[Rfam]
RNA sequence: GACGGGAACGUACGGCCGCAACUCCGACGUGCCGCCCGCUUGGGCGGCUUGGGAUUGCGGCGGUGU
Numbered sequence: 001g002a003c004g005g006g007a008a009c010g011u012a013c014g015g016c017c018g019c020a021a022c023u024c025c026g027a028c029g030u031g032c033c034g035c036c037c038g039c040u041u042g043g044g045c046g047g048c049u050u051g052g053g054a055u056u057g058c059g060g061c062g063g064u065g066u
Base pairs, nucleotide, nucleotide: 010066011065012064013063015061016060017059018058019057020056021055024053025052031048032047033046034045035044036043037042